[Rfam]
RNA sequence: CAAGGAGCGCAUGACUGGCGGAAAAGUGGAAUAAACCACAGGGAGUGCGCAUCCUCAUAUAAGCCGACCGUCUGGGCACCCUAA
Numbered sequence: 001c002a003a004g005g006a007g008c009g010c011a012u013g014a015c016u017g018g019c020g021g022a023a024a025a026g027u028g029g030a031a032u033a034a035a036c037c038a039c040a041g042g043g044a045g046u047g048c049g050c051a052u053c054c055u056c057a058u059a060u061a062a063g064c065c066g067a068c069c070g071u072c073u074g075g076g077c078a079c080c081c082u083a084a
Stems, first nucleotide, its partner, number of pairs: 004053002007050006015042002017072005026039004063077003
The family of this 84-nucleotide sequence from Peptoclostridium acidaminophilum is "ZMP/ZTP riboswitch aptamer (pfl RNA motif)". The family's consensus secondary structure is taken from published work. For this family Rfam cites "Recognition of the bacterial alarmone ZMP through long-distance association of two RNA subdomains" (Jones and Ferre-D'Amare, Nat Struct Mol Biol, 2015).